Notes
The record is a 94-nucleotide sequence from a Bradyrhizobiaceae bacterium, which matches "Repression of heat shock gene expression (ROSE) element" in Rfam. The family has 13 seed sequences and 381 matches in Rfam 15.1. Taxonomically the source falls in Nitrobacteraceae (Bacteria, Pseudomonadati, Pseudomonadota, Hyphomicrobiales). On this family, see Nocker et al., Nucleic Acids Res 2001: "A mRNA-based thermosensor controls expression of rhizobial heat shock genes". Pairs were carried over by alignment from the consensus structure, which is taken from published work. The match comes from Rfam's covariance-model search (77 bits). About the family: This family represents a 5' UTR cis-regulatory element found in heat shock mRNAs and is known as the ROSE (repression of heat shock gene expression) element. The ROSE element is a negative regulator of heat shock gene expression. The secondary structure is thought to be regulated by temperature.

RNA sequence: CCGGGCGCCAAUCGGGCCCGGCUGUGACGGGCGCCGGCGGUGUCCGGUGUCUGCUCGUUUCCAUCUUGCUCUCAGGAGGAUUUGGUCAUGCGCA
Numbered sequence: 001c002c003g004g005g006c007g008c009c010a011a012u013c014g015g016g017c018c019c020g021g022c023u024g025u026g027a028c029g030g031g032c033g034c035c036g037g038c039g040g041u042g043u044c045c046g047g048u049g050u051c052u053g054c055u056c057g058u059u060u061c062c063a064u065c066u067u068g069c070u071c072u073c074a075g076g077a078g079g080a081u082u083u084g085g086u087c088a089u090g091c092g093c094a
Stems, first nucleotide, its partner, number of pairs: 001021006008015002028053010054092001056090003061085003066080002069078003